[Rfam]
This 298-nucleotide RNA from Senna tora belongs to the Rfam family "Plant signal recognition particle RNA".
RNA sequence: GCCGAGCUGAGUAACGCCAGCUUGUAAUCCAUGUGGAGGCAUUGAGGUGGUUGGAUAUGGCUGUGGCUUGCAUGGUUGGGCUGGCUAAUGCAUCACCAUGGCUUGCCUCCAAGCUGUGAGUUGGGCCAAGGGACCUGAGCGAAGGCUUGAGUCUUGUGGUUCCUAAAUUGGAGGGCACAGCGUGAGGCUGGUUUCACAGAGCAGCGAAAACCUUCGGCUCACAACGGUGGAGGGAUAACAGGCCGUAGCAUUCUAGCCCAUUGGACCUUGUGGGCCUAGCUACUAAACAACCACCUUU
Number, nucleotide and partner (000 for none) at each position: 001g040002c039003c038004g023005a022006g021007c020008u019009g018010a000011g000012u000013a000014a000015c000016g000017c000018c009019a008020g007021c006022u005023u004024g000025u000026a000027a000028u037029c036030c035031a000032u000033g000034u000035g030036g029037a028038g003039g002040c001041a000042u000043u000044g297045a296046g295047g294048u293049g292050g291051u290052u289053g288054g000055a000056u285057a284058u282059g281060g280061c279062u278063g277064u000065g275066g000067c000068u273069u272070g271071c270072a269073u000074g267075g266076u265077u264078g259079g258080g257081c256082u255083g254084g253085c000086u000087a000088a251089u250090g249091c000092a000093u247094c000095a000096c000097c000098a246099u245100g244101g243102c242103u241104u240105g239106c000107c232108u231109c230110c229111a228112a000113g225114c000115u223116g222117u221118g220119a219120g218121u217122u000123g162124g161125g160126c159127c158128a157129a000130g155131g154132g153133a152134c151135c000136u149137g148138a147139g146140c145141g000142a000143a000144g000145g140146c139147u138148u137149g136150a000151g134152u133153c132154u131155u130156g000157u128158g127159g126160u125161u124162c123163c000164u000165a000166a000167a000168u000169u216170g215171g214172a213173g212174g211175g000176c000177a000178c000179a000180g000181c206182g205183u204184g000185a000186g000187g000188c199189u198190g197191g000192u000193u000194u000195c000196a000197c190198a189199g188200a000201g000202c000203a000204g183205c182206g181207a000208a000209a000210a000211c174212c173213u172214u171215c170216g169217g121218c120219u119220c118221a117222c116223a115224a000225c113226g000227g000228u111229g110230g109231a108232g107233g000234g000235a000236u000237a000238a000239c105240a104241g103242g102243c101244c100245g099246u098247a093248g000249c090250a089251u088252u000253c084254u083255a082256g081257c080258c079259c078260a000261u000262u000263g000264g077265a076266c075267c074268u000269u072270g071271u070272g069273g068274g000275c065276c000277u063278a062279g061280c060281u059282a058283c000284u057285a056286a000287a000288c053289a052290a051291c050292c049293a048294c047295c046296u045297u044298u000
Rfam classes the family as a non-coding RNA gene.